RNA: tRNA
RNA sequence: AUCUAUAUAGUAUAAAAGUAUAUUUGACUUCCAAUCAUAAGGUCUAUUAAUUAAUAGUAUAGAUA
Number, nucleotide and partner (000 for none) at each position: 001a064002u063003c062004u061005a060006u059007a058008u000009a000010g021011u020012a019013u018014a000015a000016a000017a000018g013019u012020a011021u010022a000023u039024u000025u037026g036027a035028c000029u000030u000031c000032c000033a000034a000035u027036c026037a025038u000039a023040a000041g000042g000043u000044c057045u056046a055047u054048u053049a000050a000051u000052u000053a048054a047055u046056a045057g044058u007059a006060u005061a004062g003063a002064u001065a000